The family of this 98-nucleotide sequence from Ceratitis capitata is "mir-317 microRNA precursor family".
A search with the family's covariance model found it, with a score of 70 bits.
On this family, see Stark et al., Genome Res 2007: "Systematic discovery and characterization of fly microRNAs using 12 Drosophila genomes".
Its family is annotated with miRNA-mediated post-transcriptional gene silencing and RISC complex in the Gene Ontology.
RNA sequence: UGCAUCUGCUACCGGGAUACACCCUGUGCUCGCUUCGUUAAACGUUUGCCAAUCGAGUCAGUGAACACAGCUGGUGGUAUCUCAGUGGUUGGUGCAUG
Numbered sequence: 001u002g003c004a005u006c007u008g009c010u011a012c013c014g015g016g017a018u019a020c021a022c023c024c025u026g027u028g029c030u031c032g033c034u035u036c037g038u039u040a041a042a043c044g045u046u047u048g049c050c051a052a053u054c055g056a057g058u059c060a061g062u063g064a065a066c067a068c069a070g071c072u073g074g075u076g077g078u079a080u081c082u083c084a085g086u087g088g089u090u091g092g093u094g095c096a097u098g
Base pairs, nucleotide, nucleotide: 008089009088010087011086012085015083016081017080019078020077021075022074023073024070025069026068028066030064031063032062033061034060